[Rfam]
RNA sequence: GGAAGCGUGUGGGAUGACACAACUAAGCAUCGAUCGUUAUGUAGAUCACUAUGUGGCAGAUCUGUUCAGUUAGUGUUAUCAUAUGUCGUCUUGAGCUUUUCAGAUCAUCCGAUAAGCUUCUUGAUUUCAGAUUCCCGAUUGCGCAUGCAACUUCGUUUUAAGAUCACGAAUUUGCACGCCUGCACGGUCGAAUCUUCAUUCCUCAUAGUACCGCGAUUUCCAAAUUUGGGGGGUAAUCGAUUUGGUCAGAGGUAAUUUAUCGCUUCCACAUGCAGGCACUGCUGAUGGCGGUACGCCAUCUUUUUUUG
Numbered sequence: 001g002g003a004a005g006c007g008u009g010u011g012g013g014a015u016g017a018c019a020c021a022a023c024u025a026a027g028c029a030u031c032g033a034u035c036g037u038u039a040u041g042u043a044g045a046u047c048a049c050u051a052u053g054u055g056g057c058a059g060a061u062c063u064g065u066u067c068a069g070u071u072a073g074u075g076u077u078a079u080c081a082u083a084u085g086u087c088g089u090c091u092u093g094a095g096c097u098u099u100u101c102a103g104a105u106c107a108u109c110c111g112a113u114a115a116g117c118u119u120c121u122u123g124a125u126u127u128c129a130g131a132u133u134c135c136c137g138a139u140u141g142c143g144c145a146u147g148c149a150a151c152u153u154c155g156u157u158u159u160a161a162g163a164u165c166a167c168g169a170a171u172u173u174g175c176a177c178g179c180c181u182g183c184a185c186g187g188u189c190g191a192a193u194c195u196u197c198a199u200u201c202c203u204c205a206u207a208g209u210a211c212c213g214c215g216a217u218u219u220c221c222a223a224a225u226u227u228g229g230g231g232g233g234u235a236a237u238c239g240a241u242u243u244g245g246u247c248a249g250a251g252g253u254a255a256u257u258u259a260u261c262g263c264u265u266c267c268a269c270a271u272g273c274a275g276g277c278a279c280u281g282c283u284g285a286u287g288g289c290g291g292u293a294c295g296c297c298a299u300c301u302u303u304u305u306u307u308g
Base pairs, nucleotide, nucleotide: 001267002266003265004264005263006262007261011089013087014086015085023069024068027065028064029063032062033061034060035059036057037056038055039054042051275297276296277295278292279291280290281289282288
The record is a 308-nucleotide RNA from Atta cephalotes, which matches "Arthropod 7SK RNA" in Rfam. The match comes from Rfam's covariance-model search (86 bits). NCBI's taxonomy places the organism under Eukaryota, Metazoa, Hexapoda, Myrmicinae, Atta. A reference for the family is Gruber et al. (2008), "Arthropod 7SK RNA", Mol Biol Evol. Clan: 7SK clan. The family has 19 seed sequences and 229 matches in Rfam 15.1.